Nucleotides: 099
Base pairs, nucleotide, nucleotide: 003097004096005095006094007093008092013042015041016040017039021032022031023030026078027077028076029075043070045068046067048066049065050063052061053060074091079088080087081086
Number, partner (000 for none) and nucleotide at each position: 001000a002000a003097c004096u005095u006094a007093u008092c009000a010000a011000g012000a013042g014000u015041g016040g017039c018000a019000g020000a021032g022031g023030g024000g025000a026078c027077a028076g029075g030023c031022c032021c033000u034000g035000u036000g037000a038000a039017g040016c041015c042013c043070g044000a045068c046067a047000a048066c049065c050063u051000a052061c053060a054000c055000a056000a057000a058000u059000g060053u061052g062000c063050a064000a065049g066048g067046u068045g069000c070043c071000a072000a073000u074091u075029c076028c077027u078026g079088c080087g081086g082000g083000g084000a085000a086081c087080c088079g089000a090000a091074a092008g093007a094006u095005a096004a097003g098000c099000g

Shown here is a 99-nucleotide RNA sequence from Subdoligranulum variabile, a member of the family "SAM riboswitch aptamer (S box leader)". Rfam's curators write: The SAM riboswitch is found upstream of a number of genes which code for proteins involved in methionine or cysteine biosynthesis in Gram-positive bacteria. The base pairs follow the family's consensus structure, which is taken from published work. Taxonomically the source falls in Subdoligranulum variabile (Bacteria, Bacillati, Eubacteriales, Oscillospiraceae).